[Rfam]
Notes
The family of this 116-nucleotide RNA sequence from Eragrostis curvula is "MIR5070 microRNA precursor family". Its family is annotated with miRNA-mediated post-transcriptional gene silencing and RISC complex in the Gene Ontology. The family has 2 seed sequences and 266 matches in Rfam 15.1. A search with the family's covariance model found it, with a score of 118 bits.
RNA sequence: UAGGGUAACCUCCAACCCUCUUUAGUUCAACUAAAUGAACUAGUUUUCCAAAAUGAGAGCUCAUUUUGGAAAACUAGUUCAUUUAGUUGAACUAAAGAGGGUUGGAGGUUACCCUA
Number, nucleotide and partner (000 for none) at each position: 001u000002a115003g114004g113005g112006u111007a110008a109009c108010c107011u106012c105013c104014a103015a102016c101017c100018c099019u098020c097021u096022u095023u094024a093025g092026u091027u090028c089029a088030a087031c086032u085033a084034a083035a082036u081037g080038a079039a078040c077041u076042a075043g074044u000045u000046u000047u000048c000049c000050a000051a000052a000053a000054u000055g000056a000057g000058a000059g000060c000061u000062c000063a000064u000065u000066u000067u000068g000069g000070a000071a000072a000073a000074c043075u042076a041077g040078u039079u038080c037081a036082u035083u034084u033085a032086g031087u030088u029089g028090a027091a026092c025093u024094a023095a022096a021097g020098a019099g018100g017101g016102u015103u014104g013105g012106a011107g010108g009109u008110u007111a006112c005113c004114c003115u002116a000